[Rfam]
RNA sequence: AUGCAGUGGGAUGAAGCAUUCCAUGGGUCUUAAGACGGGAUUGGCAAGUUGGAGCGGAGGACUUUUAAAUGCCCUCCUCCGUCAUGAUGUUCGGUCUCUUUAGAAAUGCCGACAGGAGCAUGUCGGAUCCUCCAAAAAUGUAUCUGAUAUAGGUGCAGUAGCAUAUUUGAAGAGUCCGAGCAACAUAGCUCCUCCAUAUAUAAUUUCAAGUUUGCUCAUACUUUGUCAAUUUUUUUUGCUAGAAUUCCAUAAAAUGCAUGAAGAAAAUCAAAGAAAGGGAGUGUUUAUGGGCUCAUGAUCAUAAGUUAAUAGCAAAGGAUCUUGGCAAAGGCAUAGUGAACCGGCAAGUCACAAAACGGCAAUUAUGGACUCCGUUUUGGAGCCUU
Numbered sequence: 001a002u003g004c005a006g007u008g009g010g011a012u013g014a015a016g017c018a019u020u021c022c023a024u025g026g027g028u029c030u031u032a033a034g035a036c037g038g039g040a041u042u043g044g045c046a047a048g049u050u051g052g053a054g055c056g057g058a059g060g061a062c063u064u065u066u067a068a069a070u071g072c073c074c075u076c077c078u079c080c081g082u083c084a085u086g087a088u089g090u091u092c093g094g095u096c097u098c099u100u101u102a103g104a105a106a107u108g109c110c111g112a113c114a115g116g117a118g119c120a121u122g123u124c125g126g127a128u129c130c131u132c133c134a135a136a137a138a139u140g141u142a143u144c145u146g147a148u149a150u151a152g153g154u155g156c157a158g159u160a161g162c163a164u165a166u167u168u169g170a171a172g173a174g175u176c177c178g179a180g181c182a183a184c185a186u187a188g189c190u191c192c193u194c195c196a197u198a199u200a201u202a203a204u205u206u207c208a209a210g211u212u213u214g215c216u217c218a219u220a221c222u223u224u225g226u227c228a229a230u231u232u233u234u235u236u237u238g239c240u241a242g243a244a245u246u247c248c249a250u251a252a253a254a255u256g257c258a259u260g261a262a263g264a265a266a267a268u269c270a271a272a273g274a275a276a277g278g279g280a281g282u283g284u285u286u287a288u289g290g291g292c293u294c295a296u297g298a299u300c301a302u303a304a305g306u307u308a309a310u311a312g313c314a315a316a317g318g319a320u321c322u323u324g325g326c327a328a329a330g331g332c333a334u335a336g337u338g339a340a341c342c343g344g345c346a347a348g349u350c351a352c353a354a355a356a357c358g359g360c361a362a363u364u365a366u367g368g369a370c371u372c373c374g375u376u377u378u379g380g381a382g383c384c385u386u
Stems, first nucleotide, its partner, number of pairs: 052194002210341006230330004368384001370382003

The record is a 386-nucleotide sequence from Anisodus acutangulus, which matches "Early nodulin 40" in Rfam. It is annotated as a non-coding RNA gene. The family has 35 seed sequences and 341 matches in Rfam 15.1. The match comes from Rfam's covariance-model search (101 bits). Lineage of the source: Eukaryota > Magnoliopsida > Gunneridae > Pentapetalae > Anisodus. Rfam links the family to the GO term nodulation.